[Rfam]
RNA sequence: GCCGGCUUAGCUCAGUUGGUAGAGCAUCGGUAUCGUAAACCGAGGGUCACAGGUUCGACUCCUGCAGCCGGCA
Numbered sequence: 001g002c003c004g005g006c007u008u009a010g011c012u013c014a015g016u017u018g019g020u021a022g023a024g025c026a027u028c029g030g031u032a033u034c035g036u037a038a039a040c041c042g043a044g045g046g047u048c049a050c051a052g053g054u055u056c057g058a059c060u061c062c063u064g065c066a067g068c069c070g071g072c073a
Base pairs, nucleotide, nucleotide: 001072002071003070004069005068006067007066010025011024012023013022027043028042029041030040031039050064051063052062053061
Notes
tRNA: a 73-nucleotide RNA from Dellaglioa algida. Taxonomically the source falls in Dellaglioa algida (Bacteria, Bacillati, Lactobacillaceae, Dellaglioa). The family's consensus secondary structure is taken from published work.